[Rfam]
RNA: FMN riboswitch aptamer (RFN element)
Organism: Erysipelotrichia bacterium
RNA sequence: ACAAGUCUUCGUGGGCAGGGUGAAAUUCCCGAUCGGCGGUUAAACUCCGCGAGCACCAAUGGUGCAGGAACUGAUGUAAUUUCGGUAGCGACAGUAAAGUCUGGAUGAAAGAAGAGAACA
Numbered sequence: 001a002c003a004a005g006u007c008u009u010c011g012u013g014g015g016c017a018g019g020g021u022g023a024a025a026u027u028c029c030c031g032a033u034c035g036g037c038g039g040u041u042a043a044a045c046u047c048c049g050c051g052a053g054c055a056c057c058a059a060u061g062g063u064g065c066a067g068g069a070a071c072u073g074a075u076g077u078a079a080u081u082u083c084g085g086u087a088g089c090g091a092c093a094g095u096a097a098a099g100u101c102u103g104g105a106u107g108a109a110a111g112a113a114g115a116g117a118a119c120a
Stems, first nucleotide, its partner, number of pairs: 006115005018030003032100002034090002036050004045088002053065003070086005092103003